Eukaryotic large subunit ribosomal RNA: a 491-nucleotide part of an RNA from Aspergillus bombycis. Taxonomically the source falls in Aspergillus (Eukaryota, Opisthokonta, saccharomyceta, Aspergillaceae).

RNA sequence: UAGAACAAUGUAGAUAAGGGAAGUCGGCAAAAUGGAUCCGUAACUUCGGGAUAAGGAUUGGCUCUAAGGGUCGGGCUCGCUGGGCCUUGGGGGGAACCCCUCGGAGCAGGGGGGCACUAGCCGGGCAACCGGCCGGCGCCCCCCAGCACCGGGUGGGGGACGCCCUUGGCAGGCUUCGGCCGUCCGGCGGGCGCUUAACGACCAACUUAGAACUGGUACGGACAAGGGGAAUCUGACUGUCUAAUUAAAACAUAGCAUUGCGAUGGCCAGAAAGUGGUGUUGACGCAAUGUGAUUUCUGCCCAGUGCUCUGAAUGUCAAAGUGAAGAAAUUCAACCAAGCGCGGGUAAACGGCGGGAGUAACUAUGACUCUCUUAAGGUAGCCAAAUGCCUCGUCAUCUAAUUAGUGACGCGCAUGAAUGGAUUAACGAGAUUCCCACUGUCCCUAUCUACUAUCUAGCGAAACCACAGCCAAGGGAACGGGCUUGGCAGA
Numbered sequence: 001u002a003g004a005a006c007a008a009u010g011u012a013g014a015u016a017a018g019g020g021a022a023g024u025c026g027g028c029a030a031a032a033u034g035g036a037u038c039c040g041u042a043a044c045u046u047c048g049g050g051a052u053a054a055g056g057a058u059u060g061g062c063u064c065u066a067a068g069g070g071u072c073g074g075g076c077u078c079g080c081u082g083g084g085c086c087u088u089g090g091g092g093g094g095a096a097c098c099c100c101u102c103g104g105a106g107c108a109g110g111g112g113g114g115c116a117c118u119a120g121c122c123g124g125g126c127a128a129c130c131g132g133c134c135g136g137c138g139c140c141c142c143c144c145a146g147c148a149c150c151g152g153g154u155g156g157g158g159g160a161c162g163c164c165c166u167u168g169g170c171a172g173g174c175u176u177c178g179g180c181c182g183u184c185c186g187g188c189g190g191g192c193g194c195u196u197a198a199c200g201a202c203c204a205a206c207u208u209a210g211a212a213c214u215g216g217u218a219c220g221g222a223c224a225a226g227g228g229g230a231a232u233c234u235g236a237c238u239g240u241c242u243a244a245u246u247a248a249a250a251c252a253u254a255g256c257a258u259u260g261c262g263a264u265g266g267c268c269a270g271a272a273a274g275u276g277g278u279g280u281u282g283a284c285g286c287a288a289u290g291u292g293a294u295u296u297c298u299g300c301c302c303a304g305u306g307c308u309c310u311g312a313a314u315g316u317c318a319a320a321g322u323g324a325a326g327a328a329a330u331u332c333a334a335c336c337a338a339g340c341g342c343g344g345g346u347a348a349a350c351g352g353c354g355g356g357a358g359u360a361a362c363u364a365u366g367a368c369u370c371u372c373u374u375a376a377g378g379u380a381g382c383c384a385a386a387u388g389c390c391u392c393g394u395c396a397u398c399u400a401a402u403u404a405g406u407g408a409c410g411c412g413c414a415u416g417a418a419u420g421g422a423u424u425a426a427c428g429a430g431a432u433u434c435c436c437a438c439u440g441u442c443c444c445u446a447u448c449u450a451c452u453a454u455c456u457a458g459c460g461a462a463a464c465c466a467c468a469g470c471c472a473a474g475g476g477a478a479c480g481g482g483c484u485u486g487g488c489a490g491a
Base pairs, nucleotide, nucleotide: 001457002456003455004454010451011450012449013448014447015446016445018443019442020441035059036058037057038056039055044049060214061213063211064210065209066208067207068206069203070202071201072200073199075192076191077190078189079188080187081186082185083184084170085169086168089165090164091163097158098157099156100155101152102151103150104149106147107146109144110143111142112141113140114139115138117136118135120133121132122131123130124129215219227436228435229434230433231432232431233430234428235427238252239251240250255291256290257289258288259287260286261285262284266278267277268276269275295422296421297420299353300352301351304350305349306346307345308344309343311342314341315340316339322333323332324331325330354372355371356370357369358368359367373377393409394408395407396406397405470487471486472485473484474483

Background: The family is grouped with related families in Rfam's "LSU clan".